[Rfam]
RNA sequence: AUUAAUUAGUCUUUGUACCUUCAUAUAUCCUCGAGUAAUAUGGUUCGAGAGUCUCUACCGGGUUACCUUAAAACCUGACUAUGAAGGCAGAUAACUCAUGG
Numbered sequence: 001a002u003u004a005a006u007u008a009g010u011c012u013u014u015g016u017a018c019c020u021u022c023a024u025a026u027a028u029c030c031u032c033g034a035g036u037a038a039u040a041u042g043g044u045u046c047g048a049g050a051g052u053c054u055c056u057a058c059c060g061g062g063u064u065a066c067c068u069u070a071a072a073a074c075c076u077g078a079c080u081a082u083g084a085a086g087g088c089a090g091a092u093a094a095c096u097c098a099u100g101g
Stems, first nucleotide, its partner, number of pairs: 018087008030049006059077005

The record is a 101-nucleotide RNA from Metabacillus arenae, which matches "Purine riboswitch aptamer" in Rfam. The source organism's lineage runs through Bacteria, Bacilli, Caryophanales, Bacillaceae and Metabacillus. Gene Ontology term of the family: purine nucleobase biosynthetic process. A search with the family's covariance model found it, with a score of 68 bits. The family's consensus secondary structure is taken from published work.